[Rfam]
RNA: terC RNA
RNA sequence: CACGCGGGCCGGGCCCCUCUGACGGCGGACCUCUGUCGUGAUGUCGGACCGCACCG
Numbered sequence: 001c002a003c004g005c006g007g008g009c010c011g012g013g014c015c016c017c018u019c020u021g022a023c024g025g026c027g028g029a030c031c032u033c034u035g036u037c038g039u040g041a042u043g044u045c046g047g048a049c050c051g052c053a054c055c056g
Stems, first nucleotide, its partner, number of pairs: 006050002009047004022039007